RNA: DUF3800-IX RNA
Nucleotides: 083
Stems, first nucleotide, its partner, number of pairs: 002078002005075004010070002017034006037066004
Number, partner (000 for none) and nucleotide at each position: 001000u002078c003077c004000c005075g006074c007073c008072c009000c010070g011069u012000g013000a014000a015000a016000a017034g018033u019032c020031g021030c022029c023000u024000a025000c026000u027000g028000u029022g030021g031020c032019g033018g034017c035000c036000u037066g038065c039064c040063c041000c042000c043000g044000u045000c046000u047000g048000g049000u050000u051000u052000g053000g054000a055000a056000g057000g058000c059000g060000g061000u062000c063040g064039g065038g066037c067000u068000a069011g070010c071000a072008g073007g074006g075005c076000a077003g078002g079000u080000u081000g082000c083000g